This 396-nucleotide sequence from Zymomonas sp. belongs to the Rfam family "Alphaproteobacteria transfer-messenger RNA". The match comes from Rfam's covariance-model search (289 bits). The literature on the family includes a 1996 paper in RNA by Williams and Bartel, "Phylogenetic analysis of tmRNA secondary structure". By type it is a non-coding RNA gene. Rfam describes the family as follows. Bacterial tmRNA, also known as 10Sa RNA or SsrA, is named for its dual tRNA and mRNA-like properties. Its role is to liberate the mRNA from a stalled ribosome. To accomplish this part of the tmRNA is used as a reading frame that ends in a translation stop signal. The broken mRNA is replaced in the ribosome by the tmRNA and translation of the tmRNA leads to addition of a proteolysis tag to the incomplete protein enabling recognition by a protease. Recently a number of permuted tmRNA genes have been found encoded in two parts. tmRNAs have been identified in eubacteria and some chloroplasts but are absent from archaeal and eukaryote nuclear genomes. The family's consensus secondary structure is taken from published work. Lineage of the source: Bacteria > Pseudomonadati > Alphaproteobacteria > Sphingomonadales > Zymomonas.

RNA sequence: GGCCUUUUCAGAUGGCAGGGAACUGCCUAUAUUCGUCUCGCCGGUGCAAGCCGGCUAUAGCGAUAAACGGACGAUGAAAUAAGCCAUUCGGACCCGGGGGCGGUACCCGGCGCCUCCACCUGAGCCCUUCUGCAGCGGAAAUAUCCUCUACAUUUUGAGGAUUGAUCCCGUCGCUGCAAGAGUUGAGGCGGGGGCGAAAUAGGAUCGACGAGGGUGUAAAGAUCGAACUUUUGCUCGGCAUGGUACCACCGUCAUCGGGCUAUAUAGUAGUUGCCAAUGACAACUAUGCGGAAGCACGUCUCGCAGCCUAAGGCUGUGCGAUAGCUUCGAAACAAGCCCUGGGGGUUCGCACUUCUAGGCGGGGUUCGGAGGCACCUGGCAACAGAAGCCUCCACU
Numbered sequence: 001g002g003c004c005u006u007u008u009c010a011g012a013u014g015g016c017a018g019g020g021a022a023c024u025g026c027c028u029a030u031a032u033u034c035g036u037c038u039c040g041c042c043g044g045u046g047c048a049a050g051c052c053g054g055c056u057a058u059a060g061c062g063a064u065a066a067a068c069g070g071a072c073g074a075u076g077a078a079a080u081a082a083g084c085c086a087u088u089c090g091g092a093c094c095c096g097g098g099g100g101c102g103g104u105a106c107c108c109g110g111c112g113c114c115u116c117c118a119c120c121u122g123a124g125c126c127c128u129u130c131u132g133c134a135g136c137g138g139a140a141a142u143a144u145c146c147u148c149u150a151c152a153u154u155u156u157g158a159g160g161a162u163u164g165a166u167c168c169c170g171u172c173g174c175u176g177c178a179a180g181a182g183u184u185g186a187g188g189c190g191g192g193g194g195c196g197a198a199a200u201a202g203g204a205u206c207g208a209c210g211a212g213g214g215u216g217u218a219a220a221g222a223u224c225g226a227a228c229u230u231u232u233g234c235u236c237g238g239c240a241u242g243g244u245a246c247c248a249c250c251g252u253c254a255u256c257g258g259g260c261u262a263u264a265u266a267g268u269a270g271u272u273g274c275c276a277a278u279g280a281c282a283a284c285u286a287u288g289c290g291g292a293a294g295c296a297c298g299u300c301u302c303g304c305a306g307c308c309u310a311a312g313g314c315u316g317u318g319c320g321a322u323a324g325c326u327u328c329g330a331a332a333c334a335a336g337c338c339c340u341g342g343g344g345g346u347u348c349g350c351a352c353u354u355c356u357a358g359g360c361g362g363g364g365u366u367c368g369g370a371g372g373c374a375c376c377u378g379g380c381a382a383c384a385g386a387a388g389c390c391u392c393c394a395c396u
Stems, first nucleotide, its partner, number of pairs: 040055005059235005069228001072225004084214002088211003094110005111196007236251003241262003246258002362377004368393006